Small nucleolar RNA snoR53Y: an 84-nucleotide sequence from Tetracentron sinense. By type it is a C/D-box small nucleolar RNA. The literature on the family includes a 2001 paper in RNA by Brown et al., "Multiple snoRNA gene clusters from Arabidopsis". Pairs were carried over by alignment from the consensus structure, which was predicted with WAR.
RNA sequence: GUUCCUGAUGAUGCUCUUAAUUCAACCAUGCUAAUACUGAGAUUCUUUGAUGAGUGAAUCUUCUUUUGAUCUUCUGAGGGAACC
Numbered sequence: 001g002u003u004c005c006u007g008a009u010g011a012u013g014c015u016c017u018u019a020a021u022u023c024a025a026c027c028a029u030g031c032u033a034a035u036a037c038u039g040a041g042a043u044u045c046u047u048u049g050a051u052g053a054g055u056g057a058a059u060c061u062u063c064u065u066u067u068g069a070u071c072u073u074c075u076g077a078g079g080g081a082a083c084c
Stems, first nucleotide, its partner, number of pairs: 001083005